[Rfam]
RNA: azaaromatic riboswitch aptamer (yjdF RNA)
RNA sequence: GUUCGGACACGCGAAAACACAGUCCCGGUUGGUAGUCCGGGCCGUACCCGUCCGGGUGCGCAGUAACCUCCCCCUCCCGGGGUGUCCGGCGUGUCCCUUCCAGAU
Numbered sequence: 001g002u003u004c005g006g007a008c009a010c011g012c013g014a015a016a017a018c019a020c021a022g023u024c025c026c027g028g029u030u031g032g033u034a035g036u037c038c039g040g041g042c043c044g045u046a047c048c049c050g051u052c053c054g055g056g057u058g059c060g061c062a063g064u065a066a067c068c069u070c071c072c073c074c075u076c077c078c079g080g081g082g083u084g085u086c087c088g089g090c091g092u093g094u095c096c097c098u099u100c101c102a103g104a105u
Stems, first nucleotide, its partner, number of pairs: 005096007022042002025040004043060006070082004